[Rfam]
RNA sequence: GCUGGAUAUGGUGGUUUGUGCCUGUGAUCUGAGUGCUGAGAGGGCUGAAGUUAAAGCACGGCUUGAUUCCAGGGAUUUUGGGCUGCAACAAGCUGUGCUGAGCGGGCGUCUGUGUGAAGUUUGGCAUGGAUAAGGUGAUCCUGAGGGAACUGGGGGCCACCAGGUUGCCAAAGAAAGGGGGAACUGGCCCAGAUUGAGGUGGAGCAGGUAAAAAUUCAGGUGUUGAUUCAUAGUGGGAUGGUGUAGGUGAAUAUUCCCUGUAGUACAGCCUGGGAAUGGAAAAGAAACCCAGUUUCCU
Dot-bracket structure: (((((.(((((....))))).))....(((........))))).).((((((.........((((.(((((((....(((.((((((....(.(((.(...((..((((((.(((.(.(.(((((((.(((..((((.((((.((....)).)))).))))..)))..(...)...(((.....(.(((....((.....))....))).)...)))..))))))).)..).)))))...))))..))).))).)...)))))).)))))))))).)....)))......))))))..
Rfam assigns this 298-nucleotide sequence from Oxyruncus cristatus to the family "Metazoan signal recognition particle RNA". About the family: The signal recognition particle (SRP) is a universally conserved ribonucleoprotein. It is involved in the co-translational targeting of proteins to membranes. The family's RNA type in Rfam is non-coding RNA gene. It scores 79 bits against the family's covariance model. Taxonomically the source falls in Oxyruncus (Eukaryota, Euteleostomi, Dipnotetrapodomorpha, Amniota). A reference for the family is Wild et al. (2002), "Towards the structure of the mammalian signal recognition particle", Curr Opin Struct Biol.